[Rfam]
RNA sequence: UUUGCAGCGGCAGGUCAUACACGACCAGCUCCUGCUGAACUCCCUCAGGACCGGAAGGUAGCAAGGGUAGGCGGUUGUAGCGGUGCGAUGUAUUCAGCCUGCCACUUU
Number, nucleotide and partner (000 for none) at each position: 001u000002u000003u000004g000005c000006a000007g000008c000009g103010g102011c101012a100013g099014g098015u097016c000017a093018u092019a091020c090021a089022c087023g086024a084025c083026c000027a000028g000029c000030u000031c000032c000033u000034g000035c000036u000037g000038a000039a000040c000041u000042c000043c000044c000045u000046c000047a000048g000049g000050a000051c000052c000053g000054g000055a000056a000057g000058g000059u000060a000061g000062c000063a000064a000065g000066g000067g000068u000069a000070g000071g000072c000073g000074g000075u000076u000077g000078u000079a000080g000081c000082g000083g025084u024085g000086c023087g022088a000089u021090g020091u019092a018093u017094u000095c000096a000097g015098c014099c013100u012101g011102c010103c009104a000105c000106u000107u000108u000

The record is a 108-nucleotide RNA from Phnomibacter ginsenosidimutans, which matches "Bacteroidales small SRP" in Rfam. On this family, see Ryan et al., Nat Commun 2020: "A high-resolution transcriptome map identifies small RNA regulation of metabolism in the gut microbe Bacteroides thetaiotaomicron". The match comes from Rfam's covariance-model search (94 bits). The organism belongs to Phnomibacter, within Bacteria. The base pairs follow the family's consensus structure, which is taken from published work.